Background
This 94-nucleotide RNA from Branchiostoma lanceolatum belongs to the Rfam family "mir-2060 microRNA precursor family". The family has 7 seed sequences and 3,696 matches in Rfam 15.1. The base pairs follow the family's consensus structure, which was predicted with RNAalifold. A search with the family's covariance model found it, with a score of 76 bits.
RNA sequence: AUGUGUCCGUGUGUGAAUGGUGUUCAACACCAAAAACAUGUGUGUUUCCCUCUGUGUGGAUGGUGUUCAGUAUCAGGGACAGGUGUGUUUACCU
Numbered sequence: 001a002u003g004u005g006u007c008c009g010u011g012u013g014u015g016a017a018u019g020g021u022g023u024u025c026a027a028c029a030c031c032a033a034a035a036a037c038a039u040g041u042g043u044g045u046u047u048c049c050c051u052c053u054g055u056g057u058g059g060a061u062g063g064u065g066u067u068c069a070g071u072a073u074c075a076g077g078g079a080c081a082g083g084u085g086u087g088u089u090u091a092c093c094u
Stems, first nucleotide, its partner, number of pairs: 004085004009080002018075007026067007034055001036053001038051001040049001042047001
Dot-bracket structure: ...((((.((.......(((((((.(((((((.(.(.(.(.(....).).).).).....))))))).)))))))...)).)))).........